A member of the RNA family "Iron response element II" from Pteropus alecto, 30 nucleotides long. The base pairs follow the family's consensus structure, which is taken from published work. Rfam 15.1 lists 5,197 matches to the family in 722 species. The literature on the family includes a 2012 paper in FEBS Lett by Walden et al., "Accommodating variety in iron-responsive elements: Crystal structure of transferrin receptor 1 B IRE bound to iron regulatory protein 1". IRE, TFRC, SLC40A1, SDHB, SLC11A2, CDC42BPA, ACO2, ALAS2_H.SAPIENS, CDC14A, EPAS1, ALAS2, qoxD, Hao1, NDUFS1, transferrin, Aconitate. Rfam classes the family as a cis-regulatory element.

[Rfam]
RNA sequence: CAUUUAUAGUAGCAGUGUCUACUAUAAAUG
Numbered sequence: 001c002a003u004u005u006a007u008a009g010u011a012g013c014a015g016u017g018u019c020u021a022c023u024a025u026a027a028a029u030g
Stems, first nucleotide, its partner, number of pairs: 001030012013017001